[Rfam]
RNA sequence: AGGCAGCCACUUUGCAGUAGUUAAUCGGGCAAAGGUAGUGUUGAACUGCUCAUAUAUUGAAUUUACUUCGGGCCUUCGGACUUGCUGAGAGAUAGAUUUAUUUGACUGGUCUAGUAAGCCCAAGUAUAUC
Numbered sequence: 001a002g003g004c005a006g007c008c009a010c011u012u013u014g015c016a017g018u019a020g021u022u023a024a025u026c027g028g029g030c031a032a033a034g035g036u037a038g039u040g041u042u043g044a045a046c047u048g049c050u051c052a053u054a055u056a057u058u059g060a061a062u063u064u065a066c067u068u069c070g071g072g073c074c075u076u077c078g079g080a081c082u083u084g085c086u087g088a089g090a091g092a093u094a095g096a097u098u099u100a101u102u103u104g105a106c107u108g109g110u111c112u113a114g115u116a117a118g119c120c121c122a123a124g125u126a127u128a129u130c
Base pairs, nucleotide, nucleotide: 002042003041004040005039007038010034011033012032013031014030015029066124067123068122071119078112079111080110081109082108084106090099091098
Small nucleolar RNA snoR77: a 130-nucleotide sequence from Tripterygium wilfordii.
On this family, see Marker et al., Curr Biol 2002: "Experimental RNomics: identification of 140 candidates for small non-messenger RNAs in the plant Arabidopsis thaliana".
Taxonomically the source falls in Tripterygium (Eukaryota, Viridiplantae, Euphyllophyta, Gunneridae).
It scores 65 bits against the family's covariance model.